Notes: The record is a 56-nucleotide sequence from Ureibacillus yapensis, which matches "Bacillaceae-1 RNA" in Rfam.
[Rfam]
RNA sequence: CGUCGACGAAAGCGCAACGUCCUGUUGCAUCGUCGACAUGACUCACAUCGUGUGAG
Dot-bracket structure: .((((((......(((((.....)))))...))))))....(((((.....)))))
The source organism's lineage runs through Bacteria, Bacillati, Bacilli, Caryophanaceae and Ureibacillus.